This 76-nucleotide RNA sequence from Crocodylus porosus belongs to the Rfam family "Mammalian CPEB3 ribozyme". Its family is annotated with RNA nuclease activity in the Gene Ontology. The organism belongs to Crocodylus, within Eukaryota. A search with the family's covariance model found it, with a score of 44 bits.

RNA sequence: GUUGCAAGUCAAGGCCAUAGCAAAAAUGCUCACAGCACAGCCUGUCAGAUUCCAAAUGAAAUCUGUGAAUUCUGCU
Numbered sequence: 001g002u003u004g005c006a007a008g009u010c011a012a013g014g015c016c017a018u019a020g021c022a023a024a025a026a027u028g029c030u031c032a033c034a035g036c037a038c039a040g041c042c043u044g045u046c047a048g049a050u051u052c053c054a055a056a057u058g059a060a061a062u063c064u065g066u067g068a069a070u071u072c073u074g075c076u
Base pairs, nucleotide, nucleotide: 013042014041015040019076020075021074022073024071025070027037028036046065047064048063049062050061051060